Annotation
The record is a 584-nucleotide part of an RNA from Ignisphaera aggregans, which matches "Archaeal large subunit ribosomal RNA" in Rfam.

[Rfam]
Nucleotides: 584
Stems, first nucleotide, its partner, number of pairs: 008577009022563001023529002027499002029496006035489002045106003048061003067100006076088003111120003145175005182213001183211005193200002223230002234261005244252002264482004272306003282294004318420004331412001333410002347396003353369001355368004372376001378390003432453007460476005516523002
Number, partner (000 for none) and nucleotide at each position: 001000c002000g003000c004000g005000g006000a007000c008577g009576c010575c011574g012573c013572c014571c015570g016569g017000u018000g019000g020000a021000u022563g023529g024528c025000u026000c027499g028498g029496c030495u031494c032493a033492g034491g035489c036488g037000c038000c039000g040000a041000g042000g043000a044000a045106g046105g047104g048061c049060g050059c051000g052000g053000c054000a055000a056000g057000c058000g059050g060049c061048g062000a063000u064000a065000u066000g067100c068099c069098c070097g071096g072095g073000g074000a075000a076088g077087g078086c079000g080000c081000a082000g083000g084000c085000a086078g087077c088076c089000g090000u091000u092000g093000a094000a095072c096071c097070c098069g099068g100067g101000a102000u103000c104047c105046c106045c107000g108000a109000a110000u111120g112119g113118g114000a115000a116000u117000u118113c119112c120111u121000g122000c123000u124000a125000c126000g127000g128000g129000g130000u131000a132000a133000c134000a135000c136000c137000c138000c139000g140000u141000a142000g143000c144000a145175u146174c147173c148172g149171g150000g151000a152000a153000a154000c155000c156000g157000g158000g159000c160000a161000a162000c163000c164000g165000g166000g167000a168000g169000u170000a171149c172148c173147g174146g175145a176000g177000g178000g179000g180000a181000a182213c183211c184210c185209c186208c187207c188000g189000a190000a191000c192000g193200g194199a195000a196000a197000c198000a199194u200193c201000u202000u203000a204000g205000u206000a207187g208186g209185g210184g211183g212000a213182g214000g215000a216000a217000g218000a219000g220000a221000a222000a223230c224229c225000a226000a227000u228000a229224g230223g231000g232000a233000a234261c235260c236259c237258c238257u239000g240000a241000g242000u243000a244252g245251g246000g247000g248000c249000g250000a251245c252244c253000g254000a255000a256000a257238g258237g259236g260235g261234g262000a263000a264482a265481g266480c267479u268000c269000a270000a271000a272306c273305c274304a275000a276000a277000u278000c279000u280000c281000c282294a283293c284292g285291g286000g287000a288000u289000a290000a291285c292284c293283g294282u295000g296000g297000a298000g299000a300000g301000a302000u303000g304274u305273g306272g307000u308000g309000u310000u311000g312000a313000g314000g315000c316000a317000g318420c319419c320418u321417a322000u323000u324000g325000a326000u327000g328000a329000c330000g331412g332000g333410c334409c335000c336000g337000a338000c339000c340000c341000a342000c343000g344000g345000u346000a347396g348395c349394c350000g351000a352000a353369g354000u355368g356367g357366g358365c359000u360000g361000g362000a363000a364000a365358g366357c367356c368355c369353c370000g371000c372376c373000g374000u375000a376372g377000a378390g379389g380388g381000u382000g383000a384000u385000a386000g387000c388380c389379c390378c391000g392000u393000a394349g395348g396347c397000u398000a399000a400000a401000c402000c403000g404000u405000g406000g407000g408000g409334g410333g411000a412331c413000g414000a415000g416000a417321u418320a419319g420318g421000u422000u423000g424000c425000c426000g427000g428000a429000g430000u431000a432453c433452c434451a435450c436449g437448g438447c439000u440000u441000g442000g443000u444000u445000u446000u447438g448437c449436c450435g451434u452433g453432g454000g455000a456000a457000g458000c459000u460476g461475g462474g463473a464472g465000g466000c467000a468000c469000c470000g471000a472464c473463u474462u475461c476460c477000a478000a479267a480266g481265c482264u483000a484000a485000a486000u487000a488036c489035g490000u491034c492033c493032u494031g495030a496029g497000a498028c499027c500000g501000a502000u503000a504000g505000c506000g507000a508000a509000c510000u511000a512000a513000g514000u515000a516523c517522c518000g519000u520000g521000a522517g523516g524000g525000a526000a527000a528024g529023c530000u531000g532000a533000a534000a535000a536000g537000u538000a539000c540000c541000c542000c543000g544000g545000a546000a547000g548000g549000g550000g551000g552000g553000u554000g555000a556000a557000a558000a559000g560000a561000g562000c563022c564000u565000g566000a567000a568000a569016c570015c571014g572013g573012g574011c575010g576009g577008c578000u579000a580000a581000u582000c583000a584000c

The family's consensus secondary structure is taken from published work.